[Rfam]
RNA: FMN riboswitch aptamer (RFN element)
RNA sequence: UCGCGUGCUCUGGGGUCGGUGAAAUUCCGAGCCGGCGGUGAUAGUCCGCGACCCGGUGCCUGUCAGGACGGCGUCCUAGAUGGCACCGGUUGACCAGGUGAAACUCCUGGACCGACGGUCAAAGUCCGGAUGGGAAGCGCACGCAG
Number, nucleotide and partner (000 for none) at each position: 001u000002c000003g144004c143005g142006u141007g140008c139009u000010c137011u000012g000013g000014g000015g000016u000017c029018g028019g027020u000021g000022a000023a000024a000025u000026u000027c019028c018029g017030a000031g125032c124033c114034g113035g049036c048037g047038g046039u000040g000041a000042u000043a000044g112045u111046c038047c037048g036049c035050g000051a000052c000053c089054c088055g087056g086057u085058g084059c083060c082061u000062g000063u000064c000065a000066g000067g000068a000069c000070g000071g000072c000073g000074u000075c000076c000077u000078a000079g000080a000081u000082g060083g059084c058085a057086c056087c055088g054089g053090u000091u000092g000093a000094c110095c109096a108097g107098g106099u000100g000101a000102a000103a000104c000105u000106c098107c097108u096109g095110g094111a045112c044113c034114g033115a000116c128117g127118g126119u000120c000121a000122a000123a000124g032125u031126c118127c117128g116129g000130a000131u000132g000133g000134g000135a000136a000137g010138c000139g008140c007141a006142c005143g004144c003145a000146g000